Rfam assigns this 285-nucleotide RNA from Vombatus ursinus to the family "Small Cajal body specific RNA 6". The match comes from Rfam's covariance-model search (108 bits). U88 is small Cajal body specific RNA (scaRNA). scaRNAs are a novel class of small nuclear RNAs which localise to the Cajal bodies. U88 is found associated with both fibrillarin and Gar1p and co-localises with coilin in Cajal bodies. Taxonomically the source falls in Vombatus (Eukaryota, Opisthokonta, Bilateria, Craniata). On this family, see Darzacq et al., EMBO J 2002: "Cajal body-specific small nuclear RNAs: a novel class of 2'-O-methylation and pseudouridylation guide RNAs". The base pairs follow the family's consensus structure, which is taken from published work.
RNA sequence: GGUCAGUGAUGAGAAGUAAAAGGUCUGACUGCACUGAGAAAUCACAUUCCCUCUUGCGGCCUUCACAGCUCCCAGCAGCCCAUCAUUUCUUACCCAGGCACGAUUAAGACACACUGUCCUUGGGAUGGUGGAGCCGCUGACAGCUGGGGACGUGUUCAGUGUGUGCUCCCGAGAGGAGGGAAGGACAUGCUGGGCUGCUGUCCAACAGAACCUUUCCGGAGGAGCUUGGAGUGGAGUGCCACAGGAAUGUGACGGUGCGUGAUCUCAAGUUUUCAAGCUGAGACC
Numbered sequence: 001g002g003u004c005a006g007u008g009a010u011g012a013g014a015a016g017u018a019a020a021a022g023g024u025c026u027g028a029c030u031g032c033a034c035u036g037a038g039a040a041a042u043c044a045c046a047u048u049c050c051c052u053c054u055u056g057c058g059g060c061c062u063u064c065a066c067a068g069c070u071c072c073c074a075g076c077a078g079c080c081c082a083u084c085a086u087u088u089c090u091u092a093c094c095c096a097g098g099c100a101c102g103a104u105u106a107a108g109a110c111a112c113a114c115u116g117u118c119c120u121u122g123g124g125a126u127g128g129u130g131g132a133g134c135c136g137c138u139g140a141c142a143g144c145u146g147g148g149g150a151c152g153u154g155u156u157c158a159g160u161g162u163g164u165g166c167u168c169c170c171g172a173g174a175g176g177a178g179g180g181a182a183g184g185a186c187a188u189g190c191u192g193g194g195c196u197g198c199u200g201u202c203c204a205a206c207a208g209a210a211c212c213u214u215u216c217c218g219g220a221g222g223a224g225c226u227u228g229g230a231g232u233g234g235a236g237u238g239c240c241a242c243a244g245g246a247a248u249g250u251g252a253c254g255g256u257g258c259g260u261g262a263u264c265u266c267a268a269g270u271u272u273u274c275a276a277g278c279u280g281a282g283a284c285c
Stems, first nucleotide, its partner, number of pairs: 001285004036266003041263003049238001051236004069224004073139004078134002093124001095122004100117003147203001149202004162189004167181004